The record is a 111-nucleotide RNA from Chryseoglobus sp. 28M-23, which matches "TPP riboswitch aptamer (THI element)" in Rfam.
Gene Ontology term of the family: thiamine pyrophosphate binding.
Taxonomically the source falls in Microcella (Bacteria, Bacillati, Micrococcales, Microbacteriaceae).
A search with the family's covariance model found it, with a score of 62 bits.
RNA sequence: GGGCAUGUACACGGGAGCCCGGUGAACCGGGCUGAGAGGAAGCGCACCUACGCUUCGACCGUCGAACCUGAUCCGGAUCAUGCCGGCGCAGGGAGGACUUCUCUUCACACC
Numbered sequence: 001g002g003g004c005a006u007g008u009a010c011a012c013g014g015g016a017g018c019c020c021g022g023u024g025a026a027c028c029g030g031g032c033u034g035a036g037a038g039g040a041a042g043c044g045c046a047c048c049u050a051c052g053c054u055u056c057g058a059c060c061g062u063c064g065a066a067c068c069u070g071a072u073c074c075g076g077a078u079c080a081u082g083c084c085g086g087c088g089c090a091g092g093g094a095g096g097a098c099u100u101c102u103c104u105u106c107a108c109a110c111c
Stems, first nucleotide, its partner, number of pairs: 007098002010095001011062004017032005039056005067092004073086004